This 32-nucleotide RNA belongs to the Rfam family "L31-Firmicutes ribosomal protein leader". The family's consensus secondary structure is taken from published work. Clan: Ribosomal Protein L31 Leader clan.
RNA sequence: CUCUGUUCCCAUGGGGAUCAGGGCGGAAAGAG
Numbered sequence: 001c002u003c004u005g006u007u008c009c010c011a012u013g014g015g016g017a018u019c020a021g022g023g024c025g026g027a028a029a030g031a032g
Stems, first nucleotide, its partner, number of pairs: 001023005007017003